[Rfam]
Rfam assigns this 48-nucleotide RNA sequence to the family "DUF3800-XI RNA".
From the family's description: Actinobacteria, Firmicutes, Proteobacteria, Spirochaetes (1 example).
It is one of the family's seed sequences.
Pairs were carried over by alignment from the consensus structure, which is taken from published work.
RNA sequence: CGGGCUGGUCGAUGCGACCCUGGCCCACCCACAGAGGGGAAUUUCCCC
Numbered sequence: 001c002g003g004g005c006u007g008g009u010c011g012a013u014g015c016g017a018c019c020c021u022g023g024c025c026c027a028c029c030c031a032c033a034g035a036g037g038g039g040a041a042u043u044u045c046c047c048c
Stems, first nucleotide, its partner, number of pairs: 002026005007019004